[Rfam]
RNA sequence: UCACGUGACACCUCUCCCCAAAGAGAGGACUUGUUCUGGAUGGGAUGGAUCC
Numbered sequence: 001u002c003a004c005g006u007g008a009c010a011c012c013u014c015u016c017c018c019c020a021a022a023g024a025g026a027g028g029a030c031u032u033g034u035u036c037u038g039g040a041u042g043g044g045a046u047g048g049a050u051c052c
Stems, first nucleotide, its partner, number of pairs: 011028006032047006
Rfam assigns this 52-nucleotide RNA sequence to the family "serC leader".
From the family's description: This family is a putative regulatory RNA structure that is found upstream of the serC-serA operon in some alpha-proteobacteria. The final stem of the structure overlaps the ribosome binding site of the serC reading frame.
Gene Ontology term of the family: regulation of gene expression.